[Rfam]
RNA sequence: UCAUUAUUAAAUAGAUGUGCCUAUAUAAUACCAAAAUAAGGUUGGUUAGUUUCUACCCGCACCCGUAAAGUGCGGACUAUAAGCAAAUGGGAAGGUCCG
Numbered sequence: 001u002c003a004u005u006a007u008u009a010a011a012u013a014g015a016u017g018u019g020c021c022u023a024u025a026u027a028a029u030a031c032c033a034a035a036a037u038a039a040g041g042u043u044g045g046u047u048a049g050u051u052u053c054u055a056c057c058c059g060c061a062c063c064c065g066u067a068a069a070g071u072g073c074g075g076a077c078u079a080u081a082a083g084c085a086a087a088u089g090g091g092a093a094g095g096u097c098c099g
Base pairs, nucleotide, nucleotide: 018085019084020083022081023080024079025078029048030046031045032044033043034042057075058074059073060072061071062070

Purine riboswitch aptamer: a 99-nucleotide RNA sequence from Nicoliella spurrieriana. Rfam's curators write: Riboswitches are metabolite binding domains within certain messenger RNAs that serve as precision sensors for their corresponding targets. The family's consensus secondary structure is taken from published work.